[Rfam]
RNA: purD RNA motif
RNA sequence: GUGUGUGUGUGUGUGUGUGUGCGUGUGUGUACAUAUAUAUAUAUAUACACACACACACACACACACACAUAUAUAUAUAUUGUUGGGUUUAUGGCCCAAAUCCCUUUUACCGGCUACUUGGAA
Numbered sequence: 001g002u003g004u005g006u007g008u009g010u011g012u013g014u015g016u017g018u019g020u021g022c023g024u025g026u027g028u029g030u031a032c033a034u035a036u037a038u039a040u041a042u043a044u045a046u047a048c049a050c051a052c053a054c055a056c057a058c059a060c061a062c063a064c065a066c067a068c069a070u071a072u073a074u075a076u077a078u079a080u081u082g083u084u085g086g087g088u089u090u091a092u093g094g095c096c097c098a099a100a101u102c103c104c105u106u107u108u109a110c111c112g113g114c115u116a117c118u119u120g121g122a123a
Stems, first nucleotide, its partner, number of pairs: 003068007017056005023050004033044004083099007